[Rfam]
RNA: TPP riboswitch aptamer (THI element)
Organism: Paraburkholderia dinghuensis
RNA sequence: CUGACGAAACAGGGGUGCUACGCCCGACAUGCAGUGCAUGUUGCGGCGAGGCUGAGAGAGACCCUUUGCACCCGAUCCGGGUAAUACCGGCGCGGGAAGUUUCAGGAAAGCAUCA
Numbered sequence: 001c002u003g004a005c006g007a008a009a010c011a012g013g014g015g016u017g018c019u020a021c022g023c024c025c026g027a028c029a030u031g032c033a034g035u036g037c038a039u040g041u042u043g044c045g046g047c048g049a050g051g052c053u054g055a056g057a058g059a060g061a062c063c064c065u066u067u068g069c070a071c072c073c074g075a076u077c078c079g080g081g082u083a084a085u086a087c088c089g090g091c092g093c094g095g096g097a098a099g100u101u102u103c104a105g106g107a108a109a110g111c112a113u114c115a
Stems, first nucleotide, its partner, number of pairs: 006103005011065004016059001017052003021048004071096004077090004